This 79-nucleotide sequence from Candidatus Electrothrix aarhusensis belongs to the Rfam family "c-di-GMP-I riboswitch aptamer".
Its family is annotated with cyclic-di-GMP binding in the Gene Ontology.
RNA sequence: AGUUGAAAAAGCCACAACCGUCGUGAGGCGGUGUCGGAAAGCCACGGAUCUCUGGAAGAGAGACCGCCGGGUUACCUGC
Numbered sequence: 001a002g003u004u005g006a007a008a009a010a011g012c013c014a015c016a017a018c019c020g021u022c023g024u025g026a027g028g029c030g031g032u033g034u035c036g037g038a039a040a041g042c043c044a045c046g047g048a049u050c051u052c053u054g055g056a057a058g059a060g061a062g063a064c065c066g067c068c069g070g071g072u073u074a075c076c077u078g079c
Stems, first nucleotide, its partner, number of pairs: 012037002017032006040073004045069003049063005

From the family's description: GEMM was predicted in a large-scale screen for bacterial structured RNA regulatory elements.